[Rfam]
RNA sequence: AUCGUCACUGCUGCUCCAAGGGCACACGCAGAGGGAUUUGGAAUUCCUGGAGAGUUGCCUUUGUGAGAAGCUGGAAAUAUUUCUUUGAAUUCCAUCUCUUAGUUUUCCAUGUAAGUGUUCAGUUUACAUUUGGGUUGC
Numbered sequence: 001a002u003c004g005u006c007a008c009u010g011c012u013g014c015u016c017c018a019a020g021g022g023c024a025c026a027c028g029c030a031g032a033g034g035g036a037u038u039u040g041g042a043a044u045u046c047c048u049g050g051a052g053a054g055u056u057g058c059c060u061u062u063g064u065g066a067g068a069a070g071c072u073g074g075a076a077a078u079a080u081u082u083c084u085u086u087g088a089a090u091u092c093c094a095u096c097u098c099u100u101a102g103u104u105u106u107c108c109a110u111g112u113a114a115g116u117g118u119u120c121a122g123u124u125u126a127c128a129u130u131u132g133g134g135u136u137g138c
Stems, first nucleotide, its partner, number of pairs: 005075002010071003014067003017063008026055002033048004091134003
RNA: ODC internal ribosome entry site (IRES)